[Rfam]
RNA: mir-36 microRNA precursor family
RNA sequence: CAUUCAGGGCUGGACUGGACCUGUGCUGUUUUUUGCUGCGGUGAUAUCUCCGAGUCGUGAUUAUCACCGGGCGAACAUCGGCACAGGUCCGGUCCUCCCUC
Number, nucleotide and partner (000 for none) at each position: 001c000002a000003u000004u000005c000006a000007g000008g000009g000010c000011u000012g000013g000014a000015c000016u091017g090018g089019a088020c087021c086022u085023g000024u083025g082026c081027u080028g079029u000030u077031u000032u075033u074034u073035g072036c071037u070038g000039c069040g000041g067042u066043g065044a064045u063046a062047u000048c000049u000050c000051c000052g000053a000054g000055u000056c000057g000058u000059g000060a000061u000062u046063a045064u044065c043066a042067c041068c000069g039070g037071g036072c035073g034074a033075a032076c000077a030078u000079c028080g027081g026082c025083a024084c000085a022086g021087g020088u019089c018090c017091g016092g000093u000094c000095c000096u000097c000098c000099c000100u000101c000